[Rfam]
RNA sequence: AUGAAAAUAAUGUGAGAUAACUUUUGUUAACCGAAGAAGCAAUGUUAAACUACCACAAGUUUAAUAGAAACUUUCAGGUAAAUGUAACAUUAUAGGACG
Numbered sequence: 001a002u003g004a005a006a007a008u009a010a011u012g013u014g015a016g017a018u019a020a021c022u023u024u025u026g027u028u029a030a031c032c033g034a035a036g037a038a039g040c041a042a043u044g045u046u047a048a049a050c051u052a053c054c055a056c057a058a059g060u061u062u063a064a065u066a067g068a069a070a071c072u073u074u075c076a077g078g079u080a081a082a083u084g085u086a087a088c089a090u091u092a093u094a095g096g097a098c099g
Stems, first nucleotide, its partner, number of pairs: 007093007019028003030079003033075002037073003043066009
Shown here is a 99-nucleotide RNA from Clostridium carboxidivorans, a member of the family "Glycine riboswitch aptamer". Taxonomically the source falls in Clostridium carboxidivorans (Bacteria, Clostridia, Eubacteriales, Clostridium). Rfam describes the family as follows. This family represents the bacterial glycine riboswitch.